[Rfam]
Rfam assigns this 70-nucleotide RNA sequence from Psophia crepitans to the family "Small nucleolar RNA SNORD59".
Its family is annotated with RNA processing and nucleolus in the Gene Ontology.
Clan: SNORD59 clan.
The match comes from Rfam's covariance-model search (49 bits).
On this family, see Galardi et al., Mol Cell Biol 2002: "Purified box C/D snoRNPs are able to reproduce site-specific 2'-O-methylation of target RNA in vitro".
Nucleotides: 070
Base pairs, nucleotide, nucleotide: 001070002069003068005066
Number, partner (000 for none) and nucleotide at each position: 001070c002069c003068u004000g005066c006000a007000g008000u009000g010000a011000u012000g013000c014000c015000c016000u017000u018000a019000g020000c021000a022000c023000u024000u025000u026000c027000g028000u029000u030000c031000u032000c033000c034000u035000g036000a037000g038000c039000u040000u041000g042000a043000u044000g045000a046000a047000g048000c049000c050000a051000a052000g053000g054000a055000u056000u057000u058000c059000g060000a061000u062000c063000u064000g065000a066005g067000c068003a069002g070001g